RNA sequence: GGCGCUGUGGCGGAGUGGUUAACGCGACAGACUAGAAAUCUGUUUCCUUCGGGAGCGCAGGUUCGAGUCCUGCCGGCGUCG
Numbered sequence: 001g002g003c004g005c006u007g008u009g010g011c012g013g014a015g016u017g018g019u020u021a022a023c024g025c026g027a028c029a030g031a032c033u034a035g036a037a038a039u040c041u042g043u044u045u046c047c048u049u050c051g052g053g054a055g056c057g058c059a060g061g062u063u064c065g066a067g068u069c070c071u072g073c074c075g076g077c078g079u080c081g
Base pairs, nucleotide, nucleotide: 001080002079003078004077005076006075007074010025011024012023027043028042029041030040031039057073058072059071060070061069
The record is an 81-nucleotide sequence from Neofusicoccum parvum, which matches "tRNA" in Rfam. Rfam classes the family as a transfer RNA. A search with the family's covariance model found it, with a score of 60 bits.